Notes:
Vertebrate telomerase RNA: a 341-nucleotide sequence from Cyprinodon variegatus. The literature on the family includes a 2000 paper in Cell by Chen et al., "Secondary structure of vertebrate telomerase RNA". The family has 37 seed sequences and 523 matches in Rfam 15.1. Its Rfam clan is "Telomerase clan". NCBI's taxonomy places the organism under Eukaryota, Actinopteri, Ovalentaria, Cyprinodontini, Cyprinodon. Rfam describes the family as follows. Telomerase is a ribonucleoprotein reverse transcriptase that synthesises telomeric DNA. Telomerase RNAs differ greatly in sequence and structure between vertebrates, ciliates and yeasts, but they share a 5' pseudoknot structure close to the template sequence. Vertebrate telomerase RNAs have a 3' H/ACA snoRNA-like domain. Rfam links the family to the GO terms telomerase catalytic core complex, telomere maintenance via telomerase and telomerase activity.
RNA sequence: UUUUCCGCGGGGUGUUUCAUCUAACCCUAGAUCAGGAAAGCCUCCUGUACUCCACGUUUGCUGUUUUCUGUUCCUGGCUUUCAGUAGACCACAGGAGGAUGUUAGCAGGCGCGGUAACGAGAGAAAAAAAAGCCAGGAAAUCACCCCCGAGGCGCUCAGCUGUCUCACUGAAGACCCCGGAGAUGUACCGUGGUCAGCCUGGCUGCCGCGAAGAGUUGGUCUCUGCUGCUCCGUGGGAUUUUUCCUCAGUGGGGGGAGUGUGUGUCUGAGCAGAUUAACUGAGUUAGGUGACCCUUCCGAACCUGCUGUGGUCCGGUUGGGAAACCUGUGCUCAAACACCU
Numbered sequence: 001u002u003u004u005c006c007g008c009g010g011g012g013u014g015u016u017u018c019a020u021c022u023a024a025c026c027c028u029a030g031a032u033c034a035g036g037a038a039a040g041c042c043u044c045c046u047g048u049a050c051u052c053c054a055c056g057u058u059u060g061c062u063g064u065u066u067u068c069u070g071u072u073c074c075u076g077g078c079u080u081u082c083a084g085u086a087g088a089c090c091a092c093a094g095g096a097g098g099a100u101g102u103u104a105g106c107a108g109g110c111g112c113g114g115u116a117a118c119g120a121g122a123g124a125a126a127a128a129a130a131a132g133c134c135a136g137g138a139a140a141u142c143a144c145c146c147c148c149g150a151g152g153c154g155c156u157c158a159g160c161u162g163u164c165u166c167a168c169u170g171a172a173g174a175c176c177c178c179g180g181a182g183a184u185g186u187a188c189c190g191u192g193g194u195c196a197g198c199c200u201g202g203c204u205g206c207c208g209c210g211a212a213g214a215g216u217u218g219g220u221c222u223c224u225g226c227u228g229c230u231c232c233g234u235g236g237g238a239u240u241u242u243u244c245c246u247c248a249g250u251g252g253g254g255g256g257a258g259u260g261u262g263u264g265u266c267u268g269a270g271c272a273g274a275u276u277a278a279c280u281g282a283g284u285u286a287g288g289u290g291a292c293c294c295u296u297c298c299g300a301a302c303c304u305g306c307u308g309u310g311g312u313c314c315g316g317u318u319g320g321g322a323a324a325c326c327u328g329u330g331c332u333c334a335a336a337c338a339c340c341u
Stems, first nucleotide, its partner, number of pairs: 001151002006149002009147006015140003041098005056089008073137006079130003155270005166251006173244002178233004189210005195205004212224004281333004286327004292321001295320002301312003